[Rfam]
RNA sequence: UGACUGUCAUCCUUGGCACUGGAAGAAUUCACAGGCGAAAUGAGUUGCGCUGUGAAUUCCCUAGUGCCAACUAAGACGGCAA
Numbered sequence: 001u002g003a004c005u006g007u008c009a010u011c012c013u014u015g016g017c018a019c020u021g022g023a024a025g026a027a028u029u030c031a032c033a034g035g036c037g038a039a040a041u042g043a044g045u046u047g048c049g050c051u052g053u054g055a056a057u058u059c060c061c062u063a064g065u066g067c068c069a070a071c072u073a074a075g076a077c078g079g080c081a082a
Stems, first nucleotide, its partner, number of pairs: 004079005010073001013070006020063003025058002029055006